[Rfam]
RNA sequence: UGGGUGGUAUCCACUGGAACUACACCAAGCGAACUUUUAUUUUUACGAACAUCUUUUACGAGUAAUUCUGCCUUGAUCCAAAUACAAGGGACUAGGACAGAGGG
Numbered sequence: 001u002g003g004g005u006g007g008u009a010u011c012c013a014c015u016g017g018a019a020c021u022a023c024a025c026c027a028a029g030c031g032a033a034c035u036u037u038u039a040u041u042u043u044u045a046c047g048a049a050c051a052u053c054u055u056u057u058a059c060g061a062g063u064a065a066u067u068c069u070g071c072c073u074u075g076a077u078c079c080a081a082a083u084a085c086a087a088g089g090g091a092c093u094a095g096g097a098c099a100g101a102g103g104g
Stems, first nucleotide, its partner, number of pairs: 001027003004023005010018002068100003071096003075092001077091003